[Rfam]
RNA sequence: GGCUGUCGUCCUACCUGCAAGUUAUUAGAGUGAAUAAUGACGUCUAAUACUGUCAGGUAAUGACGACAGCU
Number, nucleotide and partner (000 for none) at each position: 001g071002g070003c069004u068005g067006u066007c065008g064009u063010c062011c000012u059013a058014c057015c056016u055017g054018c000019a000020a000021g051022u000023u049024a048025u047026u046027a045028g044029a043030g000031u000032g000033a000034a000035u000036a000037a000038u000039g000040a000041c000042g000043u029044c028045u027046a026047a025048u024049a023050c000051u021052g000053u000054c017055a016056g015057g014058u013059a012060a000061u000062g010063a009064c008065g007066a006067c005068a004069g003070c002071u001
A member of the RNA family "mir-236 microRNA precursor family" from Ascaris suum, 71 nucleotides long.
The source organism's lineage runs through Eukaryota, Metazoa, Ecdysozoa, Ascaridomorpha and Ascaris.
Rfam's curators put it in the seed alignment.
Its family is annotated with RISC complex and miRNA-mediated post-transcriptional gene silencing in the Gene Ontology.
The family's consensus secondary structure was predicted with RNAalifold.